This 170-nucleotide RNA sequence from Oribacterium sp. oral taxon 078 belongs to the Rfam family "Clostridiales-1 RNA". The family's RNA type in Rfam is small RNA. The source organism's lineage runs through Bacteria, Bacillati, Bacillota, Lachnospiraceae and Oribacterium sp. oral taxon 078. Rfam 15.1 lists 1,172 matches to the family in 137 species.
[Rfam]
RNA sequence: AUAAGCUCUUGUCCUGCACCGAAGCGGCCCGCAUGUAUGCGGGGGAGCUUCGGUAUAGGACAAGGCAACAGAAAUGAGGAAAGAAGCGGAUCGAGGAAGGAGAUCCGCGAUUUCCGAAUUGCUGCGUCGGAUUGCGGGAGGGCGAAGCACGAAGCAAUCCGAAGGCUUAU
Dot-bracket structure: (((((((((((...((.((((((((..((((((....))).)))..)))))))).))...))))....(((.(((..((((....(((((((.........)))))))...))))..))).)))....(((((((....(.((...)).)...)))))))...)))))))
The base pairs follow the family's consensus structure, which is taken from published work.